[Rfam]
RNA sequence: AUCGUUCACCUCUGCAGUUGGCUCACCAGUGGCCUGGAGCUGUGCAGAGACGGAAGUAGGGGUCUUCCCGAAGGAACGCGCC
Numbered sequence: 001a002u003c004g005u006u007c008a009c010c011u012c013u014g015c016a017g018u019u020g021g022c023u024c025a026c027c028a029g030u031g032g033c034c035u036g037g038a039g040c041u042g043u044g045c046a047g048a049g050a051c052g053g054a055a056g057u058a059g060g061g062g063u064c065u066u067c068c069c070g071a072a073g074g075a076a077c078g079c080g081c082c
Base pairs, nucleotide, nucleotide: 003078004077005076006075007074010049011048012047013046014045015044016043053079059069060068061067
RNA: Glutamine riboswitch aptamer (glnA leader)